[Rfam]
Description
This 136-nucleotide RNA from Upupa epops belongs to the Rfam family "Small nucleolar RNA SNORA29". Its Rfam clan is "SNORA20 clan". The literature on the family includes a 2001 paper in EMBO J by Huttenhofer et al., "RNomics: an experimental approach that identifies 201 candidates for novel, small, non-messenger RNAs in mouse". It scores 112 bits against the family's covariance model. ACA29 is a member of the H/ACA class of snoRNA that guide the sites of modification of uridines to pseudouridines. Rfam 15.1 lists 960 matches to the family in 621 species.
Nucleotides: 136
Base pairs, nucleotide, nucleotide: 004056005055006054007053016043017042018041019040071123072122073121074120089110090109091108
Number, partner (000 for none) and nucleotide at each position: 001000a002000u003000u004056c005055c006054c007053a008000u009000u010000u011000a012000a013000c014000u015000a016043c017042c018041a019040c020000u021000u022000u023000u024000u025000c026000a027000c028000u029000u030000c031000a032000c033000a034000g035000a036000u037000u038000a039000a040019g041018u042017g043016g044000c045000u046000a047000u048000g049000c050000u051000u052000g053007u054006g055005g056004g057000a058000u059000a060000a061000a062000g063000a064000a065000a066000a067000a068000g069000u070000u071123g072122c073121c074120a075000c076000g077000g078000u079000c080000u081000g082000a083000a084000g085000g086000a087000a088000a089110a090109g091108g092000u093000u094000g095000a096000u097000a098000g099000u100000a101000u102000c103000u104000u105000u106000u107000u108091c109090c110089u111000a112000c113000a114000u115000g116000a117000a118000g119000u120074u121073g122072g123071c124000a125000a126000a127000a128000c129000a130000u131000c132000c133000u134000c135000u136000g